[Rfam]
RNA sequence: UCUAUCAGCUGCUCAGUAGUCAGUGUAGAUCCUGUGGGGCAGUCAGCAGCUACAUCUGGCUACUGGGUCUCUGAUGGCUGCC
Numbered sequence: 001u002c003u004a005u006c007a008g009c010u011g012c013u014c015a016g017u018a019g020u021c022a023g024u025g026u027a028g029a030u031c032c033u034g035u036g037g038g039g040c041a042g043u044c045a046g047c048a049g050c051u052a053c054a055u056c057u058g059g060c061u062a063c064u065g066g067g068u069c070u071c072u073g074a075u076g077g078c079u080g081c082c
Base pairs, nucleotide, nucleotide: 013066014065015064016063017062018061020059021058022057023055024054025053026052027051028050032049033048034047035046
Dot-bracket structure: ............((((((.(((((((((...((((..........)))))))))).))).))))))................
mir-221 microRNA precursor family: an 82-nucleotide RNA sequence from Coregonus sp. 'balchen'. Rfam 15.1 lists 1,797 matches to the family in 643 species. The organism belongs to Coregonus, within Eukaryota. For this family Rfam cites "Parallel DNA pyrosequencing unveils new zebrafish microRNAs" (Soares et al., BMC Genomics, 2009). Gene Ontology terms of the family: miRNA-mediated post-transcriptional gene silencing and RISC complex.